[Rfam]
RNA sequence: CACCAUGGAUAACCGCGCAGCUCUUUUGGGCUGUGAGGAAAGUCCAUGCUCACACAAGCUGAGAUGCUUGUAGUGUUCGUGCGCAGCGAAAUCAUAAGCUGCGGCUCUCAUGCAGAUGAGAUGACGGCAGGAAAAAGAGCUAAGGGGAAACCUAUGCUCGAGUACCCUUGAAAGUGCCACAGUGACGAAGCAGACGGGGAAACGCGUCUGGUGGAACGCGGUAAACCCCUCGAGUGAGCAACCCAAACAUAUGGUAGGGGCACUUUUCUCCUGGAAAAUGAACAGAGAGAAGAGGCGGGGCCUGAUGUGCCCGUGCAGACAGAUGGUUAUCUCUGAACAGACUUCACCGUCUGUUCUAGACAAAACAUGGCUUACAGUG
Number, nucleotide and partner (000 for none) at each position: 001c000002a000003c000004c379005a378006u377007g375008g331009a330010u329011a328012a327013c326014c325015g000016c035017g034018c033019a032020g031021c030022u000023c000024u000025u000026u000027u000028g000029g000030g021031c020032u019033g018034u017035g016036a000037g000038g000039a000040a373041a372042g371043u000044c370045c369046a368047u367048g366049c238050u237051c236052a235053c234054a071055c070056a069057a068058g067059c066060u000061g000062a000063g000064a000065u000066g059067c058068u057069u056070g055071u054072a000073g000074u000075g000076u000077u233078c232079g231080u000081g229082c103083g102084c101085a100086g099087c098088g000089a000090a000091a000092u000093c000094a000095u000096a000097a000098g087099c086100u085101g084102c083103g082104g125105c123106u121107c120108u119109c118110a117111u000112g000113c000114a000115g000116a000117u110118g109119a108120g107121a106122u000123g105124a000125c104126g228127g227128c000129a168130g167131g166132a000133a000134a000135a000136a000137g159138a158139g157140c156141u000142a000143a000144g153145g152146g151147g000148a000149a000150a000151c146152c145153u144154a000155u000156g140157c139158u138159c137160g000161a000162g000163u000164a000165c000166c131167c130168u129169u000170g000171a000172a000173a000174g226175u225176g222177c221178c220179a000180c000181a000182g000183u000184g000185a000186c000187g000188a000189a000190g000191c210192a209193g208194a207195c206196g205197g000198g203199g000200a000201a000202a000203c198204g000205c196206g195207u194208c193209u192210g191211g000212u000213g000214g000215a000216a000217c000218g000219c000220g178221g177222u176223a000224a000225a175226c174227c127228c126229c081230u000231c079232g078233a077234g053235u052236g051237a050238g049239c000240a000241a000242c259243c258244c257245a000246a000247a000248c000249a000250u000251a000252u000253g000254g000255u000256a000257g244258g243259g242260g000261c000262a000263c294264u293265u292266u291267u290268c289269u288270c000271c000272u000273g000274g000275a000276a000277a000278a000279u000280g000281a000282a000283c000284a000285g000286a000287g000288a269289g268290a267291a266292g265293a264294g263295g316296c315297g314298g000299g312300g311301c000302c000303u000304g000305a000306u000307g000308u000309g000310c000311c300312c299313g000314u297315g296316c295317a000318g000319a000320c000321a000322g000323a000324u000325g014326g013327u012328u011329a010330u009331c008332u000333c000334u358335g357336a000337a355338c000339a000340g352341a000342c000343u000344u000345c000346a000347c000348c000349g000350u000351c000352u340353g000354u000355u337356c000357u335358a334359g000360a000361c000362a000363a000364a000365a000366c048367a047368u046369g045370g044371c042372u041373u040374a000375c007376a000377g006378u005379g004